Background
Bacterial RNase P class A: a 419-nucleotide RNA sequence from [Phormidium ambiguum] IAM M-71.

[Rfam]
RNA sequence: AGAGUAGGGGUAGGCGGUUGCAGAGUAGCUUCGCUAUUCUGAGGAAAGUCCGGGCUCCCGAAAGACCAAACUUGCUGGGUAACGCCCAGUGCGGGCGACCGUGAGGAUAGUGCCACAGAAAGAUACCGCCUUCUUGUAGUUCUGAGUUUUGAGUUAUGAGUUAAUUCAAAACUUAAAACUCAAAACUGUAAGAGGGUAAGGGUGCAAAGGUGCGGUAAGAGCGCACCAGCAACGUCGAGAGGCGUUGGCUCGGUAAACCCCGGUUGGGAGCAAGGUGGAAGGAACUAUGGUUGGUCUUUUACCAGUUCCGUCAUUAGGUACCGCUAGAGGCAUCUGGUAACAGGUGUCCCAGAUAGAUAACUGCCCUCUUAGCUUGUAUAGUUAAGAGAACAGAACCCGGCUUAUGACUUGCUCUCUCC
Numbered sequence: 001a002g003a004g005u006a007g008g009g010g011u012a013g014g015c016g017g018u019u020g021c022a023g024a025g026u027a028g029c030u031u032c033g034c035u036a037u038u039c040u041g042a043g044g045a046a047a048g049u050c051c052g053g054g055c056u057c058c059c060g061a062a063a064g065a066c067c068a069a070a071c072u073u074g075c076u077g078g079g080u081a082a083c084g085c086c087c088a089g090u091g092c093g094g095g096c097g098a099c100c101g102u103g104a105g106g107a108u109a110g111u112g113c114c115a116c117a118g119a120a121a122g123a124u125a126c127c128g129c130c131u132u133c134u135u136g137u138a139g140u141u142c143u144g145a146g147u148u149u150u151g152a153g154u155u156a157u158g159a160g161u162u163a164a165u166u167c168a169a170a171a172c173u174u175a176a177a178a179c180u181c182a183a184a185a186c187u188g189u190a191a192g193a194g195g196g197u198a199a200g201g202g203u204g205c206a207a208a209g210g211u212g213c214g215g216u217a218a219g220a221g222c223g224c225a226c227c228a229g230c231a232a233c234g235u236c237g238a239g240a241g242g243c244g245u246u247g248g249c250u251c252g253g254u255a256a257a258c259c260c261c262g263g264u265u266g267g268g269a270g271c272a273a274g275g276u277g278g279a280a281g282g283a284a285c286u287a288u289g290g291u292u293g294g295u296c297u298u299u300u301a302c303c304a305g306u307u308c309c310g311u312c313a314u315u316a317g318g319u320a321c322c323g324c325u326a327g328a329g330g331c332a333u334c335u336g337g338u339a340a341c342a343g344g345u346g347u348c349c350c351a352g353a354u355a356g357a358u359a360a361c362u363g364c365c366c367u368c369u370u371a372g373c374u375u376g377u378a379u380a381g382u383u384a385a386g387a388g389a390a391c392a393g394a395a396c397c398c399g400g401c402u403u404a405u406g407a408c409u410u411g412c413u414c415u416c417u418c419c
Stems, first nucleotide, its partner, number of pairs: 001415008012405001013365007021041009046403003050400005055270004064298002069265003073262002075089005090104001091102004105260002110258002112254003126201002128197014209227006229249001230247007274322004281315002286310001289303003293299001329348008